[Rfam]
The family of this 224-nucleotide sequence from Streptomyces dangxiongensis is "Streptomyces sRNA 4677". Rfam classes the family as a small RNA. The source organism's lineage runs through Bacteria, Bacillati, Actinomycetes, Kitasatosporales and Streptomyces. Located in the intergenic region between anti-sigma factor SCO4677 gene and a putative regulatory protein gene SCO4676. scr4677 expression requires the SCO4677 activity and scr4677 sRNA itself seem to affect the levels of the SCO4676-associated transcripts. For this family Rfam cites "Complex intra-operonic dynamics mediated by a small RNA in Streptomyces coelicolor" (Hindra et al., PLoS One, 2014).
RNA sequence: GGGUCCGGCGAGCCACUGACCUCCUGAAAGAACCGGGGAAAGAACUACCCGCCCACCCACCCUCCCCGGCCCGGAAGUGCGCGUCACCCGUCCGAGUGACCGGCUUGCAAGGGCGGGAUACGGACGGUUACGUUCGCCGCGACAACCGCAAACAGAUACGCCCCCCGGCCGGGACGGCAAUCCCGAUCGAGGGCCUGACCGAUCAGGAAGUAGACCCCUUCCCG
Numbered sequence: 001g002g003g004u005c006c007g008g009c010g011a012g013c014c015a016c017u018g019a020c021c022u023c024c025u026g027a028a029a030g031a032a033c034c035g036g037g038g039a040a041a042g043a044a045c046u047a048c049c050c051g052c053c054c055a056c057c058c059a060c061c062c063u064c065c066c067c068g069g070c071c072c073g074g075a076a077g078u079g080c081g082c083g084u085c086a087c088c089c090g091u092c093c094g095a096g097u098g099a100c101c102g103g104c105u106u107g108c109a110a111g112g113g114c115g116g117g118a119u120a121c122g123g124a125c126g127g128u129u130a131c132g133u134u135c136g137c138c139g140c141g142a143c144a145a146c147c148g149c150a151a152a153c154a155g156a157u158a159c160g161c162c163c164c165c166c167g168g169c170c171g172g173g174a175c176g177g178c179a180a181u182c183c184c185g186a187u188c189g190a191g192g193g194c195c196u197g198a199c200c201g202a203u204c205a206g207g208a209a210g211u212a213g214a215c216c217c218c219u220u221c222c223c224g
Stems, first nucleotide, its partner, number of pairs: 007203001009201002012070003084099004089094001112138005160195001162193003166189002171184004206222005